Shown here is a 102-nucleotide RNA, a member of the family "DUF3577 RNA". It is one of the family's seed sequences.

RNA sequence: CGUAUCGGAUAUGCGUGAGCAAUCACGCGAAACUCGCCUGUAAUCCCGGCAUCACCGCGCAAGUGGUGUGGCGACUGACCUUGCUGCUGUGGCAGCGAUUUU
Numbered sequence: 001c002g003u004a005u006c007g008g009a010u011a012u013g014c015g016u017g018a019g020c021a022a023u024c025a026c027g028c029g030a031a032a033c034u035c036g037c038c039u040g041u042a043a044u045c046c047c048g049g050c051a052u053c054a055c056c057g058c059g060c061a062a063g064u065g066g067u068g069u070g071g072c073g074a075c076u077g078a079c080c081u082u083g084c085u086g087c088u089g090u091g092g093c094a095g096c097g098a099u100u101u102u
Stems, first nucleotide, its partner, number of pairs: 013028006034074005053068006082097006